[Rfam]
Record summary
MIR2619 microRNA precursor family: a 182-nucleotide RNA from Medicago truncatula. The source organism's lineage runs through Eukaryota, Streptophyta, Streptophytina, Embryophyta and Medicago. The base pairs follow the family's consensus structure, which was predicted with RNAalifold.
RNA sequence: AAACAGUCCCCUAUGUAUUGGAUCUUUGGCAGUUUUGGCCCCCAAGGCCAAUUUUGACUUGGCCUUUGCUGACGUGGCGUCAAAACUUGGCCCCCUAUGUGGGUGCCACGUCAGCGAAGACCAAGUCAAAAUUGGCUUUGAUGACCAAAACUGUCAAAGAUCCAAUACAUAUGGGGCUGUUU
Numbered sequence: 001a002a003a004c005a006g007u008c009c010c011c012u013a014u015g016u017a018u019u020g021g022a023u024c025u026u027u028g029g030c031a032g033u034u035u036u037g038g039c040c041c042c043c044a045a046g047g048c049c050a051a052u053u054u055u056g057a058c059u060u061g062g063c064c065u066u067u068g069c070u071g072a073c074g075u076g077g078c079g080u081c082a083a084a085a086c087u088u089g090g091c092c093c094c095c096u097a098u099g100u101g102g103g104u105g106c107c108a109c110g111u112c113a114g115c116g117a118a119g120a121c122c123a124a125g126u127c128a129a130a131a132u133u134g135g136c137u138u139u140g141a142u143g144a145c146c147a148a149a150a151c152u153g154u155c156a157a158a159g160a161u162c163c164a165a166u167a168c169a170u171a172u173g174g175g176g177c178u179g180u181u182u
Stems, first nucleotide, its partner, number of pairs: 001182002004179005012171027040143001043140003072111002075108007